This 143-nucleotide sequence from Schnuerera ultunensis belongs to the Rfam family "Ribosomal protein L20 leader". On this family, see Zengel and Lindahl, Prog Nucleic Acid Res Mol Biol 1994: "Diverse mechanisms for regulating ribosomal protein synthesis in Escherichia coli". The match comes from Rfam's covariance-model search (67 bits). The family's RNA type in Rfam is cis-regulatory leader. Rfam's curators write: This family is a putative r-protein leader autoregulatory structure found in B. subtilis and other low-GC Gram-positive bacteria. It is located in the 5' untranslated regions of mRNAs encoding initiation factor 3 followed by ribosomal proteins L35 and L20 (infC-rpmI-rplT).
RNA sequence: GAGAAAAAGUAGAAGUAUCCGCUUCUCACCUUAUAGCCAAGGCUCAUAAGGUUACAAUGAUAGACAAGGUAGUUUCUAGUUAAACUAUCUCAUUCUAUAGUGGGCUUUUAGCGGGUAUUUUAUACCCGCUUUUAUUUUUUAAA
Numbered sequence: 001g002a003g004a005a006a007a008a009g010u011a012g013a014a015g016u017a018u019c020c021g022c023u024u025c026u027c028a029c030c031u032u033a034u035a036g037c038c039a040a041g042g043c044u045c046a047u048a049a050g051g052u053u054a055c056a057a058u059g060a061u062a063g064a065c066a067a068g069g070u071a072g073u074u075u076c077u078a079g080u081u082a083a084a085c086u087a088u089c090u091c092a093u094u095c096u097a098u099a100g101u102g103g104g105c106u107u108u109u110a111g112c113g114g115g116u117a118u119u120u121u122a123u124a125c126c127c128g129c130u131u132u133u134a135u136u137u138u139u140u141a142a143a
Stems, first nucleotide, its partner, number of pairs: 011026006028052003033047002036043002110130009